[Rfam]
Shown here is a 127-nucleotide RNA sequence from Acinetobacter brisouii, a member of the family "Ribosomal S15 leader". The E. coli Ribosomal S15 gene 5' UTR can form two alternative structures. One that is a series of three hairpins, The other includes a pseudoknot. This structure causes translational regulation of the S15 protein. The alignment of this family contains only the final two hairpins which are conserved in other species, and also includes the complete region that forms the alternate structures. The organism belongs to Acinetobacter brisouii, within Bacteria. A reference for the family is Benard et al. (1996), "Pseudoknot and translational control in the expression of the S15 ribosomal protein", Biochimie. Rfam classes the family as a cis-regulatory leader. It scores 41 bits against the family's covariance model.

RNA sequence: UAAAUUAAUUAUAUUAGUUUGUUGAUAUAUAUCAUUUUUUAUUUAUUUUUAAGCAUCUCGGAGUAAUCGAAUGGCUUUAACUAACCAAGACCGCGCAGAAAUCGUUGCUAAAUUUGCUCGUGCAGAA
Numbered sequence: 001u002a003a004a005u006u007a008a009u010u011a012u013a014u015u016a017g018u019u020u021g022u023u024g025a026u027a028u029a030u031a032u033c034a035u036u037u038u039u040u041a042u043u044u045a046u047u048u049u050u051a052a053g054c055a056u057c058u059c060g061g062a063g064u065a066a067u068c069g070a071a072u073g074g075c076u077u078u079a080a081c082u083a084a085c086c087a088a089g090a091c092c093g094c095g096c097a098g099a100a101a102u103c104g105u106u107g108c109u110a111a112a113u114u115u116g117c118u119c120g121u122g123c124a125g126a127a
Base pairs, nucleotide, nucleotide: 002020003019004018005017006016007015060078061077062076063075
Dot-bracket structure: .((((((.......)))))).......................................((((...........)))).................................................